[Rfam]
Nucleotides: 081
Base pairs, nucleotide, nucleotide: 004043005042006041009038010037011036012035013034016032017031018030020029021028051078052077053076054075056074057073061072062071
Number, partner (000 for none) and nucleotide at each position: 001000u002000u003000u004043c005042g006041c007000g008000u009038u010037c011036g012035g013034c014000u015000u016032g017031c018030g019000g020029g021028c022000g023000a024000u025000g026000a027000u028021g029020c030018c031017g032016u033000u034013g035012c036011c037010g038009a039000c040000g041006g042005c043004g044000u045000g046000c047000a048000g049000c050000a051078g052077g053076u054075g055000g056074g057073u058000u059000u060000u061072a062071c063000c064000c065000a066000g067000a068000c069000c070000c071062g072061u073057g074056c075054c076053g077052c078051c079000a080000u081000a

A member of the RNA family "antisense RNA of dnaA mRNA" from Pluralibacter gergoviae, 81 nucleotides long. A search with the family's covariance model found it, with a score of 93 bits. The organism belongs to Pluralibacter, within Bacteria. The family's consensus secondary structure was predicted with RNAfold.